Rfam assigns this 228-nucleotide part of an RNA from Trichormus azollae to the family "Bacterial large subunit ribosomal RNA".
RNA sequence: GACUUAUAGGCACUGGUAGGUUAAAGCGAGAAUGCUGGAGCCAAAGGGAAACCGAGUCUGAAGAGGGCGAUAAUCAGUGUUUAUAGACCCGAACCCUGGUGAUCUAACCAUGGUCAGGAUGAAGCUUGGGUAACACCAAGUGGAGGUCCGAACCGACCGAUGUUGAAAAAUCGGCGGAUGAACUGUGGUUAGGGGUGAAAUGCCAAUCGAACCAGGAGCUAGCUGGUU
Numbered sequence: 001g002a003c004u005u006a007u008a009g010g011c012a013c014u015g016g017u018a019g020g021u022u023a024a025a026g027c028g029a030g031a032a033u034g035c036u037g038g039a040g041c042c043a044a045a046g047g048g049a050a051a052c053c054g055a056g057u058c059u060g061a062a063g064a065g066g067g068c069g070a071u072a073a074u075c076a077g078u079g080u081u082u083a084u085a086g087a088c089c090c091g092a093a094c095c096c097u098g099g100u101g102a103u104c105u106a107a108c109c110a111u112g113g114u115c116a117g118g119a120u121g122a123a124g125c126u127u128g129g130g131u132a133a134c135a136c137c138a139a140g141u142g143g144a145g146g147u148c149c150g151a152a153c154c155g156a157c158c159g160a161u162g163u164u165g166a167a168a169a170a171u172c173g174g175c176g177g178a179u180g181a182a183c184u185g186u187g188g189u190u191a192g193g194g195g196u197g198a199a200a201u202g203c204c205a206a207u208c209g210a211a212c213c214a215g216g217a218g219c220u221a222g223c224u225g226g227u228u
Stems, first nucleotide, its partner, number of pairs: 005085013019042004025036003046053002056068004088226002091223001095216006104192011115180001117149004124141006153177003157174005194204003
Its Rfam clan is "LSU clan".